[Rfam]
RNA sequence: UUCUUAUCAAGAGUGGUGGAGGGACUGGCCCGAUGAAACCCAGCAACCGGUAUUCGGAUGAAUACAACGGUGCUAAUUCCUGCGAUGGAAGCAUUGAUAGAUGAGAG
Dot-bracket structure: ((((((((....(.(((...(((.[.[[)))......))))((((.((.(((..........)))...))))))...(]].](((((....)))))..)))))))))

A member of the RNA family "SAM riboswitch aptamer (S box leader)" from Desulfitobacterium hafniense, 107 nucleotides long. Rfam links the family to the GO term regulation of gene expression. The family's consensus secondary structure is taken from published work.